Shown here is a 206-nucleotide sequence, a member of the family "Plant small nucleolar RNA U3". Rfam's curators write: Small nucleolar RNAs (snoRNAs) are involved in the processing and modification of rRNA in the nucleolus. The literature on the family includes a 2010 paper in RNA Biol by Marz and Stadler, "Comparative analysis of eukaryotic U3 snoRNA". The family's RNA type in Rfam is C/D-box small nucleolar RNA. It scores 166 bits against the family's covariance model. The base pairs follow the family's consensus structure, which is taken from published work.
Nucleotides: 206
Stems, first nucleotide, its partner, number of pairs: 001033001003031003011025006038064004043059006073205005092193008101184003105156004115145002120140001123137005157180010
Number, partner (000 for none) and nucleotide at each position: 001033g002000a003031c004030c005029u006000u007000a008000c009000u010000u011025g012024a013023a014022c015021a016020g017000g018000a019000u020016c021015u022014g023013u024012u025011c026000u027000a028000u029005a030004g031003g032000c033001u034000a035000u036000c037000u038064c039063u040062g041061u042000a043059u044058c045057c046056u047055u048054g049000a050000c051000u052000u053000c054048u055047a056046a057045g058044g059043a060000g061041a062040c063039a064038g065000g066000a067000a068000a069000u070000c071000a072000a073205g074204u075203c076202u077201g078000g079000u080000g081000g082000a083000u084000g085000a086000g087000c088000c089000a090000u091000g092193g093192c094191u095190g096189c097188u098187c099186g100000u101184c102183c103182a104000g105156a106155g107154c108153g109000u110000g111000a112000u113000u114000a115145a116144c117000a118000u119000a120140c121000u122000c123137a124136u125135u126134g127133g128000c129000u130000c131000g132000g133127c134126c135125a136124a137123u138000c139000u140120g141000a142000c143000a144116g145115u146000a147000g148000a149000u150000g151000a152000u153108c154107g155106u156105u157180c158179u159178u160177g161176g162175u163174c164173a165172g166171c167000u168000u169000c170000g171166g172165c173164u174163g175162g176161c177160u178159a179158g180157g181000g182103u183102g184101g185000u186099c187098g188097a189096g190095c191094a192093g193092c194000u195000g196000u197000c198000u199000g200000a201077c202076a203075g204074a205073c206000u